[Rfam]
The family of this 387-nucleotide RNA from Nocardioides jishulii is "Bacterial RNase P class A". Rfam classes the family as a ribozyme. The source organism's lineage runs through Bacteria, Actinomycetota, Propionibacteriales, Nocardioidaceae and Nocardioides.
RNA sequence: CGGGCCGGCCGGGCGAUCGCGUCAUCCGAGGGAGACCGAGGAUGCCGAGGAAAGUCCGGGCUCCACAGGGCAGGGUGGUGGGUAACACCCACCCGGGGUGACCCGCGGGACAGUGCCACAGAGAACAGACCGCCGCUCCUCGGAGCGGUAAGGGUGAAACGGUGGUGCAAGAGACCACCAGUGAUCCAGGCGACUGGAGCAGCUAGGUAAACCCCACCCGGAGCAAGGUCAAGAAGCCACUCGCUCGCGAGUGGUGCGUGUACGUCCGAGGGCUGCCCGCCCGAGUACACGGGUAGACCGCAGGAGGCGUCAGGCAACUGGCGUCGUAGAUGGAUGGUCGCCCCCACGCAAGUGGGACAGAACCCGGCUUACAGGCCGGCCCGUUCG
Dot-bracket structure: ((((((((((((((((((.((.(((((............))))).))....[[[.[[[[[((((...[[[[.((((((((((.....)))))(((((....)))).)((...(((((............(((((((((....)))))))..)).......((((((.......)))))).(((.(((((....))))).)).)..)))..)))))))))))))...((((...........................((((((......((((.]]]]))))..)))))).....))))......((((((((....))))))))..........)))))))....................]]]]]]]].).))))))))))....